[Rfam]
The record is a 560-nucleotide part of an RNA from Pseudomonas aeruginosa, which matches "Bacterial small subunit ribosomal RNA" in Rfam. Taxonomically the source falls in Pseudomonas aeruginosa (Bacteria, Pseudomonadota, Gammaproteobacteria, Pseudomonadales).
Nucleotides: 560
Base pairs, nucleotide, nucleotide: 009025010024011023012022013021027550028549029548030547032546033545034544035543036542037541039397040396041395042394043393044392045390046389047355052353053352054351056350057349058348061100062099063098066097067096069093070092075088076087077086078085079084107308108307109306116233117232118231119230120229121228122227125225126224130221131220132219133218134217135216136215138172140170141169147162148161149160150159151158152157178187179186180185192213193212194211195210196209197208234280235279236278241271242270243269246268247267248266249265250264251263252262253261283305284304285303286302287298288297289296290295310331311330312329313328314327333344334343335342336341361387363386364385365384369382370381371380372379373378400430401429402428403427410421411420412419413418434491436486437485438484439483440482444477450470451469452468453467454466455465494539495538496537497536498535505534506533507532508531509530515522516521
Number, partner (000 for none) and nucleotide at each position: 001000g002000a003000a004000c005000u006000g007000a008000a009025g010024a011023g012022u013021u014000u015000g016000a017000u018000c019000a020000u021013g022012g023011c024010u025009c026000a027550g028549a029548u030547u031000g032546a033545a034544c035543g036542c037541u038000g039397g040396c041395g042394g043393c044392a045390g046389g047355c048000c049000u050000a051000a052353c053352a054351c055000a056350u057349g058348c059000a060000a061100g062099u063098c064000g065000a066097g067096c068000g069093g070092a071000u072000g073000a074000a075088g076087g077086g078085a079084g080000c081000u082000u083000g084079c085078u086077c087076c088075u089000g090000g091000a092070u093069u094000c095000a096067g097066c098063g099062g100061c101000g102000g103000a104000c105000g106000g107308g108307u109306g110000a111000g112000u113000a114000a115000u116233g117232c118231c119230u120229a121228g122227g123000a124000a125225u126224c127000u128000g129000c130221c131220u132219g133218g134217u135216a136215g137000u138172g139000g140170g141169g142000g143000a144000u145000a146000a147162c148161g149160u150159c151158c152157g153000g154000a155000a156000a157152c158151g159150g160149g161148c162147g163000c164000u165000a166000a167000u168000a169141c170140c171000g172138c173000a174000u175000a176000c177000g178187u179186c180185c181000u182000g183000a184000g185180g186179g187178a188000g189000a190000a191000a192213g193212u194211g195210g196209g197208g198000g199000a200000u201000c202000u203000u204000c205000g206000g207000a208197c209196c210195u211194c212193a213192c214000g215136c216135u217134a218133u219132c220131a221130g222000a223000u224126g225125a226000g227122c228121c229120u230119a231118g232117g233116u234280c235279g236278g237000a238000u239000u240000a241271g242270c243269u244000a245000g246268u247267u248266g249265g250264u251263g252262g253261g254000g255000u256000a257000a258000a259000g260000g261253c262252c263251u264250a265249c266248c267247a268246a269243g270242g271241c272000g273000a274000c275000g276000a277000u278236c279235c280234g281000u282000a283305a284304c285303u286302g287298g288297u289296c290295u291000g292000a293000g294000a295290g296289g297288a298287u299000g300000a301000u302286c303285a304284g305283u306109c307108a308107c309000a310331c311330u312329g313328g314327a315000a316000c317000u318000g319000a320000g321000a322000c323000a324000c325000g326000g327314u328313c329312c330311a331310g332000a333344c334343u335342c336341c337000u338000a339000c340000g341336g342335g343334a344333g345000g346000c347000a348058g349057c350056a351054g352053u353052g354000g355047g356000g357000a358000a359000u360000a361387u362000u363386g364385g365384a366000c367000a368000a369382u370381g371380g372379g373378c374000g375000a376000a377000a378373g379372c380371c381370u382369g383000a384365u385364c386363c387361a388000g389046c390045c391000a392044u393043g394042c395041c396040g397039c398000g399000u400430g401429u402428g403427u404000g405000a406000a407000g408000a409000a410421g411420g412419u413418c414000u415000u416000c417000g418413g419412a420411u421410u422000g423000u424000a425000a426000a427403g428402c429401a430400c431000u432000u433000u434491a435000a436486g437485u438484u439483g440482g441000g442000a443000g444477g445000a446000a447000g448000g449000g450470c451469a452468g453467u454466a455465a456000g457000u458000u459000a460000a461000u462000a463000c464000c465455u466454u467453g468452c469451u470450g471000u472000u473000u474000u475000g476000a477444c478000g479000u480000u481000a482440c483439c484438a485437a486436c487000a488000g489000a490000a491434u492000a493000a494539g495538c496537a497536c498535c499000g500000g501000c502000u503000a504000a505534c506533u507532u508531c509530g510000u511000g512000c513000c514000a515522g516521c517000a518000g519000c520000c521516g522515c523000g524000g525000u526000a527000a528000u529000a530509c531508g532507a533506a534505g535498g536497g537496u538495g539494c540000a541037a542036g543035c544034g545033u546032u547030a548029a549028u550027c551000g552000g553000a554000a555000u556000u557000a558000c559000u560000g

The sequence is in the family's curated seed alignment. The family has 99 seed sequences and 42,628 matches in Rfam 15.1. Gene Ontology terms of the family: ribosome and structural constituent of ribosome.